[Rfam]
RNA sequence: GGUCAUGAGUGCCAGCGUGAAGCCCCGGCUUGCUGGCCGGCAACCCUCCAGCCAGGGUGGGGUGCUCCGGGUGAGGACACGGUCGUCGGAACACCGACGGCAAGCCGGUUCC
Numbered sequence: 001g002g003u004c005a006u007g008a009g010u011g012c013c014a015g016c017g018u019g020a021a022g023c024c025c026c027g028g029c030u031u032g033c034u035g036g037c038c039g040g041c042a043a044c045c046c047u048c049c050a051g052c053c054a055g056g057g058u059g060g061g062g063u064g065c066u067c068c069g070g071g072u073g074a075g076g077a078c079a080c081g082g083u084c085g086u087c088g089g090a091a092c093a094c095c096g097a098c099g100g101c102a103a104g105c106c107g108g109u110u111c112c
Base pairs, nucleotide, nucleotide: 002078003077004076009038011037012036013035014034015033016032021030022029039066040065041064044062045061046060048057049056082101083100084099085098086097087096088095089094
Dot-bracket structure: .(((....(.((((((....((......)).)))))))(((..(((.((......))..))).))).........)))...((((((((....))))))))...........

The record is a 112-nucleotide sequence from Rhodococcus coprophilus, which matches "SAM (S-adenosyl methionine) riboswitch aptamer" in Rfam. The literature on the family includes a 2008 paper in RNA by Weinberg et al., "The aptamer core of SAM-IV riboswitches mimics the ligand-binding site of SAM-I riboswitches". A search with the family's covariance model found it, with a score of 95 bits. From the family's description: SAM-IV is a mRNA element that regulates gene expression via direct sensing of S-adenosylmethionine (SAM or AdoMet). The family's consensus secondary structure is taken from published work. Rfam links the family to the GO terms regulation of gene expression and S-adenosylmethionine metabolic process.